[Rfam]
RNA: Bacterial large signal recognition particle RNA
RNA sequence: CCGUGCAGCCGGGGUCUUAGCGGUGCCCUGUACCAUCAAUCCGCUACAGUUGGGGUGAUAUCCUGCCUCGGGCUCAUCGAUUGCUUAGCUGCCCUGUAUAAGUGGCGUUGACGUCUGGGUCUUACGCAACAAGAAUUCAUGAACCGUGUCAGGUCAGGAAUGGAGCAGCACUAAGUGAAACCUCUUGUGUGCCGUAAGGCAGCCUGGGCCGAGUUAACUGUGCAGGUAACGUUCGUGGUCGAGGUUCAAAGCAGGAUGCACGG
Numbered sequence: 001c002c003g004u005g006c007a008g009c010c011g012g013g014g015u016c017u018u019a020g021c022g023g024u025g026c027c028c029u030g031u032a033c034c035a036u037c038a039a040u041c042c043g044c045u046a047c048a049g050u051u052g053g054g055g056u057g058a059u060a061u062c063c064u065g066c067c068u069c070g071g072g073c074u075c076a077u078c079g080a081u082u083g084c085u086u087a088g089c090u091g092c093c094c095u096g097u098a099u100a101a102g103u104g105g106c107g108u109u110g111a112c113g114u115c116u117g118g119g120u121c122u123u124a125c126g127c128a129a130c131a132a133g134a135a136u137u138c139a140u141g142a143a144c145c146g147u148g149u150c151a152g153g154u155c156a157g158g159a160a161u162g163g164a165g166c167a168g169c170a171c172u173a174a175g176u177g178a179a180a181c182c183u184c185u186u187g188u189g190u191g192c193c194g195u196a197a198g199g200c201a202g203c204c205u206g207g208g209c210c211g212a213g214u215u216a217a218c219u220g221u222g223c224a225g226g227u228a229a230c231g232u233u234c235g236u237g238g239u240c241g242a243g244g245u246u247c248a249a250a251g252c253a254g255g256a257u258g259c260a261c262g263g
Base pairs, nucleotide, nucleotide: 001263002262003261004260005259006258008056009055010054011029012028013027014026015025017023018022033053034052035051037049062255063254064253065252066251068249071247072246074244075243077242078241079240080239081238082237083236084235090228091227094225095224096223097222098221099220102218103217104215105214106213113209114208115207116206117205118204119203120202121198122197123196124195125194126193127189128188130187131186132185133184134183136179137178138177139176140175146171147170148169149168154163155162156161